[Rfam]
miR-430 microRNA precursor family: a 69-nucleotide RNA from Salmo trutta. Taxonomically the source falls in Salmo (Eukaryota, Euteleostomi, Euteleosteomorpha, Salmoniformes). The family has 32 seed sequences and 24,817 matches in Rfam 15.1. On this family, see Giraldez et al., Science 2005: "MicroRNAs regulate brain morphogenesis in zebrafish".
RNA sequence: UUGGUAACCUAACACUAGCAUUGACUUGUCUAUAUAAUGCAGUAAGUGCUACUUGUUGAGGUAGUUUGA
Numbered sequence: 001u002u003g004g005u006a007a008c009c010u011a012a013c014a015c016u017a018g019c020a021u022u023g024a025c026u027u028g029u030c031u032a033u034a035u036a037a038u039g040c041a042g043u044a045a046g047u048g049c050u051a052c053u054u055g056u057u058g059a060g061g062u063a064g065u066u067u068g069a
Base pairs, nucleotide, nucleotide: 004065005064007062008061009060010058012056013055014054017050018049019048020047021046022045024043025042026041